[Rfam]
RNA sequence: GUAUUCCUUUGGGGCAGGGUGAGAAUCCCGACCGGCGGUGAUGAGUAUGAUUACUCUUAGUCCGUGACCCGGAACACGUAUGUGUGAAGGUGGAUUUGGUGAAAUUCCAAAGCCGACAGUUAAAGUCUGGAUGGGAAAGGGAAUAG
Dot-bracket structure: ..((((((((......(((.......))).[[((((((.....................[[))))...((..................))....(((((.......)))))]])).(((.....]]))).......))))))))..
Rfam assigns this 146-nucleotide sequence from Aquibacillus salsiterrae to the family "FMN riboswitch aptamer (RFN element)". Pairs were carried over by alignment from the consensus structure, which is taken from published work.